Shown here is a 67-nucleotide RNA sequence from Herbaspirillum sp. YR522, a member of the family "Fluoride riboswitch aptamer (crcB RNA motif)".
RNA sequence: AUUCGGCCCGGAGAUGGCAUUGCUCCCCGAACCGCCGCCUGUUGCGGCUGAUCAUGCCUACGGUGAC
Numbered sequence: 001a002u003u004c005g006g007c008c009c010g011g012a013g014a015u016g017g018c019a020u021u022g023c024u025c026c027c028c029g030a031a032c033c034g035c036c037g038c039c040u041g042u043u044g045c046g047g048c049u050g051a052u053c054a055u056g057c058c059u060a061c062g063g064u065g066a067c
Base pairs, nucleotide, nucleotide: 010026011025012024013023016058017057018056019055020054034048035047036046037045
A search with the family's covariance model found it, with a score of 47 bits.